Description
Shown here is a 140-nucleotide RNA sequence from Patagioenas fasciata, a member of the family "Small Cajal body specific RNA 11". Rfam's curators write: scaRNAs are a specific class of small nuclear RNAs which localise to the Cajal bodies and guide the modification of RNA polymerase II transcribed spliceosomal RNAs U1, U2, U4, U5 and U12. ACA57 belongs to the H/ACA box class of guide RNAs as it has the predicted hairpin-hinge-hairpin-tail structure, conserved H/ACA-box motifs and is found associated with GAR1. ACA57 is predicted to guide the pseudouridylation of the U5 spliceosomal RNA at position U43. The literature on the family includes a 2002 paper in EMBO J by Darzacq et al., "Cajal body-specific small nuclear RNAs: a novel class of 2'-O-methylation and pseudouridylation guide RNAs". It scores 69 bits against the family's covariance model.

RNA sequence: GUGUCCUGACCCCAUCCUGGCUGUUCCCCUCACCAGACCUGUGGUGGUGGGGCUUGGGGGUGGACACAGAUCAACUUACCUCUCAUGUUAGGAGGGUUGCCGAAGACAUGUGUGAGCCCUUAAAGGCAAGAGAGGACACU
Numbered sequence: 001g002u003g004u005c006c007u008g009a010c011c012c013c014a015u016c017c018u019g020g021c022u023g024u025u026c027c028c029c030u031c032a033c034c035a036g037a038c039c040u041g042u043g044g045u046g047g048u049g050g051g052g053c054u055u056g057g058g059g060g061u062g063g064a065c066a067c068a069g070a071u072c073a074a075c076u077u078a079c080c081u082c083u084c085a086u087g088u089u090a091g092g093a094g095g096g097u098u099g100c101c102g103a104a105g106a107c108a109u110g111u112g113u114g115a116g117c118c119c120u121u122a123a124a125g126g127c128a129a130g131a132g133a134g135g136a137c138a139c140u
Stems, first nucleotide, its partner, number of pairs: 002066005010059002026052002028049001030047004079135006088125002092121007099113002101110002